[Rfam]
RNA: sRNA-Xcc1
Organism: Escherichia coli
RNA sequence: GGUCGGGUAGCGCGUAUACCGAAAAACAGCCGAAAGGCUAAGGAUACGGGCCGACUUGCUGCGGUGUUCAAGUACCCGACCGCCCUGCU
Numbered sequence: 001g002g003u004c005g006g007g008u009a010g011c012g013c014g015u016a017u018a019c020c021g022a023a024a025a026a027c028a029g030c031c032g033a034a035a036g037g038c039u040a041a042g043g044a045u046a047c048g049g050g051c052c053g054a055c056u057u058g059c060u061g062c063g064g065u066g067u068u069c070a071a072g073u074a075c076c077c078g079a080c081c082g083c084c085c086u087g088c089u
Stems, first nucleotide, its partner, number of pairs: 001081009013048004020042001029038003050065004